The family of this 181-nucleotide sequence from Oncorhynchus tshawytscha is "Small nucleolar RNA SNORA81". The source organism's lineage runs through Eukaryota, Opisthokonta, Actinopterygii, Teleostei and Oncorhynchus. The base pairs follow the family's consensus structure, which was predicted with WAR. Rfam classes the family as an H/ACA-box small nucleolar RNA. The match comes from Rfam's covariance-model search (104 bits).
RNA sequence: ACUUCCAUAUAAAAGAACUGUGCUAAAAUUGCAGAAUCCAGGUAACCCUUGGUUUAGGCAAUAAUGCUAGCAGAGUAUUGUGUGGAAGGAGAGCAUUUUGCACUGUGCCGGAAAAGAGUUGUGGUCGAACCUCUUUCUUAAUGUUCGUUGACCUCAUGUCUCGAGGCCUAGUGCAACAAUU
Numbered sequence: 001a002c003u004u005c006c007a008u009a010u011a012a013a014a015g016a017a018c019u020g021u022g023c024u025a026a027a028a029u030u031g032c033a034g035a036a037u038c039c040a041g042g043u044a045a046c047c048c049u050u051g052g053u054u055u056a057g058g059c060a061a062u063a064a065u066g067c068u069a070g071c072a073g074a075g076u077a078u079u080g081u082g083u084g085g086a087a088g089g090a091g092a093g094c095a096u097u098u099u100g101c102a103c104u105g106u107g108c109c110g111g112a113a114a115a116g117a118g119u120u121g122u123g124g125u126c127g128a129a130c131c132u133c134u135u136u137c138u139u140a141a142u143g144u145u146c147g148u149u150g151a152c153c154u155c156a157u158g159u160c161u162c163g164a165g166g167c168c169u170a171g172u173g174c175a176a177c178a179a180u181u
Stems, first nucleotide, its partner, number of pairs: 018075002021072005028065004035055001038052005099175007107167001120151001124149001126147004